[Rfam]
RNA sequence: UUUAUCACAAACUAAAAUUACACGUAUAUCGGCACAUAUCACUAGGGUGCUUCUUAGAAGUCAGUGUAUGGGAUAUACGGAAGAAUAAC
Numbered sequence: 001u002u003u004a005u006c007a008c009a010a011a012c013u014a015a016a017a018u019u020a021c022a023c024g025u026a027u028a029u030c031g032g033c034a035c036a037u038a039u040c041a042c043u044a045g046g047g048u049g050c051u052u053c054u055u056a057g058a059a060g061u062c063a064g065u066g067u068a069u070g071g072g073a074u075a076u077a078c079g080g081a082a083g084a085a086u087a088a089c
Stems, first nucleotide, its partner, number of pairs: 023079008035070005041065003049061005
Record summary
This 89-nucleotide RNA from Candidatus Nitrosacidicoccus tergens belongs to the Rfam family "t44 RNA". On this family, see Tjaden et al., Nucleic Acids Res 2002: "Transcriptome analysis of Escherichia coli using high-density oligonucleotide probe arrays". This family consists of a number of bacterial RNA genes of between 135 and 170 bases in length. The organism belongs to Candidatus Nitrosacidicoccus, within Bacteria. Rfam classes the family as a small RNA. The match comes from Rfam's covariance-model search (64 bits).